[Rfam]
RNA sequence: AUCUAUGCGGUGAGCACAAAGCGAACUAUUCUUUCUUUCACCUUUUACUAAAGAAUACUGUGUGCUCGUCGCGCAUAGUGGCAUACCCUUAUCUUUGGAGGCGUAAUUCCUUUUCU
Numbered sequence: 001a002u003c004u005a006u007g008c009g010g011u012g013a014g015c016a017c018a019a020a021g022c023g024a025a026c027u028a029u030u031c032u033u034u035c036u037u038u039c040a041c042c043u044u045u046u047a048c049u050a051a052a053g054a055a056u057a058c059u060g061u062g063u064g065c066u067c068g069u070c071g072c073g074c075a076u077a078g079u080g081g082c083a084u085a086c087c088c089u090u091a092u093c094u095u096u097g098g099a100g101g102c103g104u105a106a107u108u109c110c111u112u113u114u115c116u
Base pairs, nucleotide, nucleotide: 003081004080005079006078008071009070010069011068012067013066014065015064016063017062018061027057028056029055030054031053032052033051034050106114
U5 spliceosomal RNA: a 116-nucleotide sequence from Gossypium gossypioides. The base pairs follow the family's consensus structure, which is taken from published work. It is annotated as a spliceosomal small nuclear RNA. It scores 59 bits against the family's covariance model.